[Rfam]
Rfam assigns this 139-nucleotide RNA sequence to the family "lysM-TM7 RNA".
The sequence is in the family's curated seed alignment.
RNA sequence: GCCUAUCUGAACAGUCGUACGGAUACCAGUAAACUAUAAUAUUUUAACACUGGUCGACAUGUAUCCUUUUCUUUGCAAAAAACAAAGAAGUAAGACUAACUACGGUAGACGCCCUCGUAGGAAACUCGAGCGGCAGGAG
Numbered sequence: 001g002c003c004u005a006u007c008u009g010a011a012c013a014g015u016c017g018u019a020c021g022g023a024u025a026c027c028a029g030u031a032a033a034c035u036a037u038a039a040u041a042u043u044u045u046a047a048c049a050c051u052g053g054u055c056g057a058c059a060u061g062u063a064u065c066c067u068u069u070u071c072u073u074u075g076c077a078a079a080a081a082a083c084a085a086a087g088a089a090g091u092a093a094g095a096c097u098a099a100c101u102a103c104g105g106u107a108g109a110c111g112c113c114c115u116c117g118u119a120g121g122a123a124a125c126u127c128g129a130g131c132g133g134c135a136g137g138a139g
Base pairs, nucleotide, nucleotide: 003108004107005106006105007104013097014096015095016094021066022065023064024063025062026061069089070088071087072086073085074084075083111134112133113132115130117127119126120125